[Rfam]
RNA sequence: AGUAGUAGCAGCGUCUAGAGGGGUUAAAUGCCCCUCCGCCGGUUGGGCAAGGGUUCCAUGGCAACGUCAAUCAGCCAUGGGUUAGCCGGUCCUAAGGCAGAGCCCCACAGGCAUCUGCCGAAAGGGAAACGGGUUAAUAAUCCCGUGCCGUGGGGAUAGGUUUUGCGGCAACGCGUGCCCUGCUUCCGACGCCUCCGGAUACGGCGAGCGGGACCGCCGUCCCGUUUAACCGCCGAAGACCGGGGAGCGGCGUAAUGCCGAGAACCGGUUGAAUGCGGGAAUAGCCGGGCCUUGAGCCUGGUUCGCCCGAUUCCGGGGGCCCAUGAAAAGGAAGCAGGGAACGAGUCCCCACGCCCGUACCGAGAACCGACACAGGUGCCCUGGGCUAGAAACCCAAGGCGGCU
Numbered sequence: 001a002g003u004a005g006u007a008g009c010a011g012c013g014u015c016u017a018g019a020g021g022g023g024u025u026a027a028a029u030g031c032c033c034c035u036c037c038g039c040c041g042g043u044u045g046g047g048c049a050a051g052g053g054u055u056c057c058a059u060g061g062c063a064a065c066g067u068c069a070a071u072c073a074g075c076c077a078u079g080g081g082u083u084a085g086c087c088g089g090u091c092c093u094a095a096g097g098c099a100g101a102g103c104c105c106c107a108c109a110g111g112c113a114u115c116u117g118c119c120g121a122a123a124g125g126g127a128a129a130c131g132g133g134u135u136a137a138u139a140a141u142c143c144c145g146u147g148c149c150g151u152g153g154g155g156a157u158a159g160g161u162u163u164u165g166c167g168g169c170a171a172c173g174c175g176u177g178c179c180c181u182g183c184u185u186c187c188g189a190c191g192c193c194u195c196c197g198g199a200u201a202c203g204g205c206g207a208g209c210g211g212g213a214c215c216g217c218c219g220u221c222c223c224g225u226u227u228a229a230c231c232g233c234c235g236a237a238g239a240c241c242g243g244g245g246a247g248c249g250g251c252g253u254a255a256u257g258c259c260g261a262g263a264a265c266c267g268g269u270u271g272a273a274u275g276c277g278g279g280a281a282u283a284g285c286c287g288g289g290c291c292u293u294g295a296g297c298c299u300g301g302u303u304c305g306c307c308c309g310a311u312u313c314c315g316g317g318g319g320c321c322c323a324u325g326a327a328a329a330g331g332a333a334g335c336a337g338g339g340a341a342c343g344a345g346u347c348c349c350c351a352c353g354c355c356c357g358u359a360c361c362g363a364g365a366a367c368c369g370a371c372a373c374a375g376g377u378g379c380c381c382u383g384g385g386c387u388a389g390a391a392a393c394c395c396a397a398g399g400c401g402g403c404u
Stems, first nucleotide, its partner, number of pairs: 018036006037401004045381004051361002056080006066072001087357003091125002096119006102112003129146005149353008185332003191320009203307004207226006230278004239269005249259003291296001367376002382396004